[Rfam]
Shown here is a 170-nucleotide RNA sequence from Panicum miliaceum, a member of the family "small nucleolar RNA snoR143".
Rfam classes the family as an H/ACA-box small nucleolar RNA.
The family has 3 seed sequences and 660 matches in Rfam 15.1.
The family's consensus secondary structure was predicted with RNAalifold.
Gene Ontology terms of the family: nucleolus and RNA processing.
RNA sequence: UUGCACCAUCGAUUUAUGUUCUGCCUUCAGUCCUUGUGGGUGGGAUAUUGUACUGGUGCAGAAAUGAAAUGCUGCUCUUUGAAGUGGCGGCGGCCAGACAACCGUUGAGACAGAUCCACAGAUAAACGACUAAUCUCCUGUUGUUUGUCUACUAAAUCUGUCUCACAUUU
Numbered sequence: 001u002u003g004c005a006c007c008a009u010c011g012a013u014u015u016a017u018g019u020u021c022u023g024c025c026u027u028c029a030g031u032c033c034u035u036g037u038g039g040g041u042g043g044g045a046u047a048u049u050g051u052a053c054u055g056g057u058g059c060a061g062a063a064a065u066g067a068a069a070u071g072c073u074g075c076u077c078u079u080u081g082a083a084g085u086g087g088c089g090g091c092g093g094c095c096a097g098a099c100a101a102c103c104g105u106u107g108a109g110a111c112a113g114a115u116c117c118a119c120a121g122a123u124a125a126a127c128g129a130c131u132a133a134u135c136u137c138c139u140g141u142u143g144u145u146u147g148u149c150u151a152c153u154a155a156a157u158c159u160g161u162c163u164c165a166c167a168u169u170u
Base pairs, nucleotide, nucleotide: 002060003059004058005057006056009052014050016048017047018046019045020044021043022042023041024040025039026038028036107164108163109162110161111160112159113158114157124146125145126144127143128142129141130140